[Rfam]
RNA sequence: UCUAGCGCCUGGUGCCUGACUCCCAGCCAUUCACACGCCCUGACACACUUCCCCGGUGCCAGGUCGUCAAUGGAUGGGGAUCAGGAAUCAGGGGCUCGGCUCC
Numbered sequence: 001u002c003u004a005g006c007g008c009c010u011g012g013u014g015c016c017u018g019a020c021u022c023c024c025a026g027c028c029a030u031u032c033a034c035a036c037g038c039c040c041u042g043a044c045a046c047a048c049u050u051c052c053c054c055g056g057u058g059c060c061a062g063g064u065c066g067u068c069a070a071u072g073g074a075u076g077g078g079g080a081u082c083a084g085g086a087a088u089c090a091g092g093g094g095c096u097c098g099g100c101u102c103c
Base pairs, nucleotide, nucleotide: 010090011089012088013087015085016084018082019081021079022078023077024076025075027073028072029071030070031069033067034066037065039063040062041061042060044058045057046056

The family of this 103-nucleotide RNA from Leifsonia sp. Root112D2 is "mraW RNA". NCBI's taxonomy places the organism under Bacteria, Bacillati, Actinomycetota, Actinomycetes, Leifsonia. It scores 61 bits against the family's covariance model. The base pairs follow the family's consensus structure, which is taken from published work. The family's RNA type in Rfam is cis-regulatory element.